[Rfam]
RNA sequence: CCCACCCAUGGCAACAAAUUCCAAUCGUGUGUUCACCAAUGCGAUUGAGCCGACGCCAUGGGAAAUCAUUGUAUUCGGCUAUUUGAUCCCACUUCCACUAUCCAUUAGUGAUUGUGGUUUGCACGUAGUCUACAA
Numbered sequence: 001c002c003c004a005c006c007c008a009u010g011g012c013a014a015c016a017a018a019u020u021c022c023a024a025u026c027g028u029g030u031g032u033u034c035a036c037c038a039a040u041g042c043g044a045u046u047g048a049g050c051c052g053a054c055g056c057c058a059u060g061g062g063a064a065a066u067c068a069u070u071g072u073a074u075u076c077g078g079c080u081a082u083u084u085g086a087u088c089c090c091a092c093u094u095c096c097a098c099u100a101u102c103c104a105u106u107a108g109u110g111a112u113u114g115u116g117g118u119u120u121g122c123a124c125g126u127a128g129u130c131u132a133c134a135a
Stems, first nucleotide, its partner, number of pairs: 005062008022047009049054001077131001078129005084123002086120001089117004096110004
RNA: Nematode snoRNA ceN125
Organism: Caenorhabditis brenneri